[Rfam]
RNA sequence: GGCUUCCUAGUACUUACCAUGGUCUGUGUUCUUACGCUGACUGUAUAGAAACAGGAGGCAGAGUAAACCGACCCCACAUAUACCUCAGCCCAGGCCCUGUGCUGCGUCUGUAUUGUGAAUCAGGAGACAUGG
Numbered sequence: 001g002g003c004u005u006c007c008u009a010g011u012a013c014u015u016a017c018c019a020u021g022g023u024c025u026g027u028g029u030u031c032u033u034a035c036g037c038u039g040a041c042u043g044u045a046u047a048g049a050a051a052c053a054g055g056a057g058g059c060a061g062a063g064u065a066a067a068c069c070g071a072c073c074c075c076a077c078a079u080a081u082a083c084c085u086c087a088g089c090c091c092a093g094g095c096c097c098u099g100u101g102c103u104g105c106g107u108c109u110g111u112a113u114u115g116u117g118a119a120u121c122a123g124g125a126g127a128c129a130u131g132g
Base pairs, nucleotide, nucleotide: 002059003058004057005056006055007054008053020043021042022041026037027036028035029034072124073123076120086110087109088108090106093103094102095101
The family of this 132-nucleotide sequence is "Small nucleolar RNA SNORA51". The base pairs follow the family's consensus structure, which was predicted with PFOLD. Rfam's curators put it in the seed alignment. By type it is an H/ACA-box small nucleolar RNA. About the family: ACA51 is a member of the H/ACA class of snoRNA that guide the sites of modification of uridines to pseudouridines. Rfam 15.1 lists 2,121 matches to the family in 210 species.